Group II catalytic intron D1-D4-2: a 118-nucleotide RNA from Haloechinothrix halophila.
Nucleotides: 118
Base pairs, nucleotide, nucleotide: 001017002016003015004014005013018043019042020041021040022039023038025036026035027034028033048117050093051092052091053090054089055088056082057081059079060078061077063075064074065073098114099113100112101111102110103109
Number, partner (000 for none) and nucleotide at each position: 001017g002016a003015a004014g005013g006000u007000u008000g009000u010000g011000g012000c013005c014004c015003u016002u017001c018043g019042g020041c021040g022039u023038c024000g025036g026035c027034c028033u029000g030000u031000g032000g033028g034027g035026g036025c037000a038023g039022g040021c041020g042019u043018c044000a045000a046000a047000c048117c049000g050093c051092c052091u053090c054089a055088u056082g057081c058000u059079g060078c061077g062000u063075u064074g065073g066000c067000u068000g069000a070000a071000g072000a073065c074064c075063g076000u077061c078060g079059u080000g081057g082056u083000g084000a085000g086000c087000g088055a089054u090053g091052a092051g093050g094000a095000a096000a097000a098114g099113g100112c101111a102110c103109c104000c105000g106000a107000g108000a109103g110102g111101u112100g113099u114098c115000a116000g117048g118000u
Pairs were carried over by alignment from the consensus structure. NCBI's taxonomy places the organism under Bacteria, Actinomycetota, Pseudonocardiales, Pseudonocardiaceae, Haloechinothrix halophila. Group II introns are found in rRNA, tRNA and mRNA of organelles in fungi, plants and protists, and also in mRNA in bacteria. A search with the family's covariance model found it, with a score of 102 bits.